[Rfam]
Shown here is a 385-nucleotide RNA sequence from Luteolibacter ambystomatis, a member of the family "Bacterial RNase P class A". The organism belongs to Luteolibacter, within Bacteria. Rfam describes the family as follows. Ribonuclease P (RNase P) is a ubiquitous endoribonuclease, found in archaea, bacteria and eukarya as well as chloroplasts and mitochondria.

RNA sequence: GCCGCUCCCCGGACGGCCGCAGUCGGGCGCAAGCCCGGUUGAGGAAAGUCCGGACACCAUAGGGCAACGCGCCUCGUGAAAACGGGGGACGGAAGCGUCAAGGCUUCCGGACGGAAAGUGCAGCAGAGAACAUACCGCCGAUGGCCCGCAAGGGAUCAGGUAAGGGUGAAACGGUGGGGUAAGAGCCCACCGCCCGAAGGGUAACCGACGGGGCACGGCAAACCCCGCGUGGUGCAAGACAGAACAGGGGAAGGGUAGCCCGCCCGCCAAUCUCCGGGUAUUAGUCGCAUCCCGCGCAAGCGGGGUCCUGCGAAAACAGGAAGAGAAAUGGCCGUCCAGUCCCUCCGGGGAUGGACAGAAUCCGGCUUACAGGGGGGCGGCACCU
Numbered sequence: 001g002c003c004g005c006u007c008c009c010c011g012g013a014c015g016g017c018c019g020c021a022g023u024c025g026g027g028c029g030c031a032a033g034c035c036c037g038g039u040u041g042a043g044g045a046a047a048g049u050c051c052g053g054a055c056a057c058c059a060u061a062g063g064g065c066a067a068c069g070c071g072c073c074u075c076g077u078g079a080a081a082a083c084g085g086g087g088g089a090c091g092g093a094a095g096c097g098u099c100a101a102g103g104c105u106u107c108c109g110g111a112c113g114g115a116a117a118g119u120g121c122a123g124c125a126g127a128g129a130a131c132a133u134a135c136c137g138c139c140g141a142u143g144g145c146c147c148g149c150a151a152g153g154g155a156u157c158a159g160g161u162a163a164g165g166g167u168g169a170a171a172c173g174g175u176g177g178g179g180u181a182a183g184a185g186c187c188c189a190c191c192g193c194c195c196g197a198a199g200g201g202u203a204a205c206c207g208a209c210g211g212g213g214c215a216c217g218g219c220a221a222a223c224c225c226c227g228c229g230u231g232g233u234g235c236a237a238g239a240c241a242g243a244a245c246a247g248g249g250g251a252a253g254g255g256u257a258g259c260c261c262g263c264c265c266g267c268c269a270a271u272c273u274c275c276g277g278g279u280a281u282u283a284g285u286c287g288c289a290u291c292c293c294g295c296g297c298a299a300g301c302g303g304g305g306u307c308c309u310g311c312g313a314a315a316a317c318a319g320g321a322a323g324a325g326a327a328a329u330g331g332c333c334g335u336c337c338a339g340u341c342c343c344u345c346c347g348g349g350g351a352u353g354g355a356c357a358g359a360a361u362c363c364g365g366c367u368u369a370c371a372g373g374g375g376g377g378c379g380g381c382a383c384c385u
Stems, first nucleotide, its partner, number of pairs: 001381010011370001012336007020041009046368003050365005055234004062261004067230005072087005088112001090109007113225002118223002120219002135165002137161003142158003145154003173191006192214001193212004199206002238286003241281001248275003253265004